The family of this 98-nucleotide RNA from cyanobiont of Ornithocercus magnificus is "TPP riboswitch aptamer (THI element)".
RNA sequence: GUGAACCACUAGGGGUGCCCCCAACUAGGGCGGCUGAGAUCACACCCUCCGAACCUGACUCGGGUCAUGCUGAUGCAGGGAAGUGACCAAGGUUGAUC
Numbered sequence: 001g002u003g004a005a006c007c008a009c010u011a012g013g014g015g016u017g018c019c020c021c022c023a024a025c026u027a028g029g030g031c032g033g034c035u036g037a038g039a040u041c042a043c044a045c046c047c048u049c050c051g052a053a054c055c056u057g058a059c060u061c062g063g064g065u066c067a068u069g070c071u072g073a074u075g076c077a078g079g080g081a082a083g084u085g086a087c088c089a090a091g092g093u094u095g096a097u098c
Stems, first nucleotide, its partner, number of pairs: 007085004011048004016042001017034003021030001054079004060073004